[Rfam]
RNA sequence: CCAACGUGGACAUCCCGUGAGUUCACUCGCUCAUGUGGCUCUGUCCGUGUGGCGUAUGGGAGCGUAGCACUUUGGUGCCAUGACGUACAGUCCCGUUCCACGACGUUGGAUAGCAGGCAUGUCCCCUGGUAAGUUGGUGAGGACGGCGUCCUGUAUAUUCCUAGGUCUUUUCAGAGCCUUAUGGGCUAUUACUGGAGAGCCAAACCAUGCAGUGCAUAAAA
Numbered sequence: 001c002c003a004a005c006g007u008g009g010a011c012a013u014c015c016c017g018u019g020a021g022u023u024c025a026c027u028c029g030c031u032c033a034u035g036u037g038g039c040u041c042u043g044u045c046c047g048u049g050u051g052g053c054g055u056a057u058g059g060g061a062g063c064g065u066a067g068c069a070c071u072u073u074g075g076u077g078c079c080a081u082g083a084c085g086u087a088c089a090g091u092c093c094c095g096u097u098c099c100a101c102g103a104c105g106u107u108g109g110a111u112a113g114c115a116g117g118c119a120u121g122u123c124c125c126c127u128g129g130u131a132a133g134u135u136g137g138u139g140a141g142g143a144c145g146g147c148g149u150c151c152u153g154u155a156u157a158u159u160c161c162u163a164g165g166u167c168u169u170u171u172c173a174g175a176g177c178c179u180u181a182u183g184g185g186c187u188a189u190u191a192c193u194g195g196a197g198a199g200c201c202a203a204a205c206c207a208u209g210c211a212g213u214g215c216a217u218a219a220a221a
Base pairs, nucleotide, nucleotide: 001109002108003107004106005105006104007103008046009045010044011043012042014038015037018029019028020027021026049101050100051099052098058094059093060092061091062088064086065085067081151212152211153210154209155208156207167199168198169197170196171195172194176186177185178184179183
This 221-nucleotide sequence from Clarias magur belongs to the Rfam family "Small nucleolar RNA SNORA73 family".
Rfam describes the family as follows. U17 (SNORA73A and SNORA73B) also known as E1 belongs to the H/ACA class of small nucleolar RNAs (snoRNAs).
Rfam links the family to the GO terms nucleolus and RNA processing.
Its Rfam clan is "snR30-U17 clan".
A reference for the family is Enright et al. (1996), "5'ETS rRNA processing facilitated by four small RNAs: U14, E3, U17, and U3", RNA.
A search with the family's covariance model found it, with a score of 186 bits.